[Rfam]
RNA sequence: GAGAGGAGAGUGAGAAUCUCUCCCCCCGAAAGCCUAAGGGUACCUGGGGAAGGGUCGUCCGCCCAGGGUUAGUCGGUACCCUAAGGUGAACCCGAAAGGGUUAGCCGAUGGGAAACCGGUUAAUAUUCCGGUACCAGCUAAUAGUGAGGCUUGGGGCGUGACGCAGGAGGAUAGGCCUCGCGUACUGGUUGCACAGUGCGUCCAAGCGUCAAGGCCGAUGAUGGAGGUAGGCAAAUCCGCCUCCGGAGGCUGAGGCGUGAUGGGGAGCUUCUUCGGGAGCGACGAGGUUGCGUUCACACUGCCGAGAAAAGCGUCGCAAGCCGCUUGAGCUAUUAGCUGACCGUUCCGCAAACCGACACAGGUAGGCUGGCUGAGAAGGCUAAGGGGAG
Numbered sequence: 001g002a003g004a005g006g007a008g009a010g011u012g013a014g015a016a017u018c019u020c021u022c023c024c025c026c027c028g029a030a031a032g033c034c035u036a037a038g039g040g041u042a043c044c045u046g047g048g049g050a051a052g053g054g055u056c057g058u059c060c061g062c063c064c065a066g067g068g069u070u071a072g073u074c075g076g077u078a079c080c081c082u083a084a085g086g087u088g089a090a091c092c093c094g095a096a097a098g099g100g101u102u103a104g105c106c107g108a109u110g111g112g113a114a115a116c117c118g119g120u121u122a123a124u125a126u127u128c129c130g131g132u133a134c135c136a137g138c139u140a141a142u143a144g145u146g147a148g149g150c151u152u153g154g155g156g157c158g159u160g161a162c163g164c165a166g167g168a169g170g171a172u173a174g175g176c177c178u179c180g181c182g183u184a185c186u187g188g189u190u191g192c193a194c195a196g197u198g199c200g201u202c203c204a205a206g207c208g209u210c211a212a213g214g215c216c217g218a219u220g221a222u223g224g225a226g227g228u229a230g231g232c233a234a235a236u237c238c239g240c241c242u243c244c245g246g247a248g249g250c251u252g253a254g255g256c257g258u259g260a261u262g263g264g265g266a267g268c269u270u271c272u273u274c275g276g277g278a279g280c281g282a283c284g285a286g287g288u289u290g291c292g293u294u295c296a297c298a299c300u301g302c303c304g305a306g307a308a309a310a311g312c313g314u315c316g317c318a319a320g321c322c323g324c325u326u327g328a329g330c331u332a333u334u335a336g337c338u339g340a341c342c343g344u345u346c347c348g349c350a351a352a353c354c355g356a357c358a359c360a361g362g363u364a365g366g367c368u369g370g371c372u373g374a375g376a377a378g379g380c381u382a383a384g385g386g387g388a389g
Stems, first nucleotide, its partner, number of pairs: 005023006024387004032367004038347002043067006052060002074343004080111002085106003089102001091100003115132005135339011150320002155315005163302004169295003174289005180201006202263002206258004213251003222245007230238002267280005353362002369381004

Description: A member of the RNA family "Bacterial large subunit ribosomal RNA" from Kosmotoga olearia, 389 nucleotides of a longer RNA. The organism belongs to Kosmotoga olearia, within Bacteria.